RNA sequence: CUCGGGGGCGGGAGGGUCCCUCAGCCCGGAUUGCAAGAGAGCGCAGGCCAAGCCGAGGGGCCCCACCAGUGCACA
Numbered sequence: 001c002u003c004g005g006g007g008g009c010g011g012g013a014g015g016g017u018c019c020c021u022c023a024g025c026c027c028g029g030a031u032u033g034c035a036a037g038a039g040a041g042c043g044c045a046g047g048c049c050a051a052g053c054c055g056a057g058g059g060g061c062c063c064c065a066c067c068a069g070u071g072c073a074c075a
Stems, first nucleotide, its partner, number of pairs: 004072001006070001010067002014063009024053002028049002031046004
A member of the RNA family "mir-9193 microRNA precursor family" from Myotis myotis, 75 nucleotides long. Rfam links the family to the GO terms miRNA-mediated post-transcriptional gene silencing and RISC complex. Taxonomically the source falls in Myotis (Eukaryota, Tetrapoda, Theria, Vespertilionidae).